RNA sequence: AUGUACUACUAGGGGUGCCCUGUCACGGGCUGAGAGAAAGACGUUAAGUCUUUUAACCCUUCGGACCUGAUCUGGGUAAUACCAGCGUAGGAAAGUAGUGUGAGAGAUGU
Numbered sequence: 001a002u003g004u005a006c007u008a009c010u011a012g013g014g015g016u017g018c019c020c021u022g023u024c025a026c027g028g029g030c031u032g033a034g035a036g037a038a039a040g041a042c043g044u045u046a047a048g049u050c051u052u053u054u055a056a057c058c059c060u061u062c063g064g065a066c067c068u069g070a071u072c073u074g075g076g077u078a079a080u081a082c083c084a085g086c087g088u089a090g091g092a093a094a095g096u097a098g099u100g101u102g103a104g105a106g107a108u109g110u
Stems, first nucleotide, its partner, number of pairs: 006098005011060004017030004037053005066091004072085004
Shown here is a 110-nucleotide RNA from Mesobacillus boroniphilus, a member of the family "TPP riboswitch aptamer (THI element)". Pairs were carried over by alignment from the consensus structure, which is taken from published work. Lineage of the source: Bacteria > Bacillati > Bacillota > Bacillaceae > Mesobacillus boroniphilus. From the family's description: Vitamin B(1) in its active form thiamin pyrophosphate (TPP) is an essential coenzyme that is synthesised by coupling of pyrimidine and thiazole moieties in bacteria.